This 61-nucleotide RNA sequence from Acyrthosiphon pisum belongs to the Rfam family "mir-3047 microRNA precursor family".
The organism belongs to Acyrthosiphon, within Eukaryota.
Gene Ontology terms of the family: miRNA-mediated post-transcriptional gene silencing and RISC complex.
The match comes from Rfam's covariance-model search (54 bits).
The base pairs follow the family's consensus structure, which was predicted with RNAalifold.

[Rfam]
RNA sequence: AGGGAGUUUUGAAUGUUUUGUAUUGUUUAAAUAUUUUACAACAACAUUCAAAACUCCCUAA
Numbered sequence: 001a002g003g004g005a006g007u008u009u010u011g012a013a014u015g016u017u018u019u020g021u022a023u024u025g026u027u028u029a030a031a032u033a034u035u036u037u038a039c040a041a042c043a044a045c046a047u048u049c050a051a052a053a054c055u056c057c058c059u060a061a
Stems, first nucleotide, its partner, number of pairs: 001059017018041005
Dot-bracket structure: ((((((((((((((((((((((..............))))).)))))))))))))))))..